[Rfam]
RNA sequence: CGGGGGAACCCUCCAUAAGGAACUCGGCAAAAUGACCCCGUAACUGCGGGAGAAGGGGGGCCUCUGGAGGUGUAGGGCUUUACGUCUGAAGCCUUUGGAGGCCGCAGAGAAUAGGCGGUGGCGACUGUUUACCAAAAACACAGGUCUCCGCAAACUCGGAAGAGGACGUAUGGGGACUGCAACCUGCCCAGUGCCGGAAGGUUAAGGGGAAGGGUGCGAGCCCUGAACCGAAGCCCCGGUAAACGGCGGCCGUAACUAUAACGGUCCUAAGGUAGCGAAAUUCCUUGUCGGGUAAGUUCCGACCUGCAUGAAUGGUCCAACGACUGCCGCACUGUCUCAUGGAGGGUCCCG
Numbered sequence: 001c002g003g004g005g006g007a008a009c010c011c012u013c014c015a016u017a018a019g020g021a022a023c024u025c026g027g028c029a030a031a032a033u034g035a036c037c038c039c040g041u042a043a044c045u046g047c048g049g050g051a052g053a054a055g056g057g058g059g060g061c062c063u064c065u066g067g068a069g070g071u072g073u074a075g076g077g078c079u080u081u082a083c084g085u086c087u088g089a090a091g092c093c094u095u096u097g098g099a100g101g102c103c104g105c106a107g108a109g110a111a112u113a114g115g116c117g118g119u120g121g122c123g124a125c126u127g128u129u130u131a132c133c134a135a136a137a138a139c140a141c142a143g144g145u146c147u148c149c150g151c152a153a154a155c156u157c158g159g160a161a162g163a164g165g166a167c168g169u170a171u172g173g174g175g176a177c178u179g180c181a182a183c184c185u186g187c188c189c190a191g192u193g194c195c196g197g198a199a200g201g202u203u204a205a206g207g208g209g210a211a212g213g214g215u216g217c218g219a220g221c222c223c224u225g226a227a228c229c230g231a232a233g234c235c236c237c238g239g240u241a242a243a244c245g246g247c248g249g250c251c252g253u254a255a256c257u258a259u260a261a262c263g264g265u266c267c268u269a270a271g272g273u274a275g276c277g278a279a280a281u282u283c284c285u286u287g288u289c290g291g292g293u294a295a296g297u298u299c300c301g302a303c304c305u306g307c308a309u310g311a312a313u314g315g316u317c318c319a320a321c322g323a324c325u326g327c328c329g330c331a332c333u334g335u336c337u338c339a340u341g342g343a344g345g346g347u348c349c350c351g
Base pairs, nucleotide, nucleotide: 001351002350003349004348009346010345011344012343013342014341015340016339018337019336020335036058037057038056039055044049060102061101062100063099064098065097077092078091079090080089081088082087103107115330116329117328118327119326120325121324122322123321126140127139128138143178144177145176146175147174148173149172150171151168155164156163157162182316183315184314186247187246188245191244192243193240194239195238196237197236200235201234202233206229207228211224212223213222214221215220248266249265250264251263252262253261267271277304287303288302289301290300291299292298
RNA: Bacterial large subunit ribosomal RNA, nucleotides 1729 to 2079
Organism: Desulfurobacterium indicum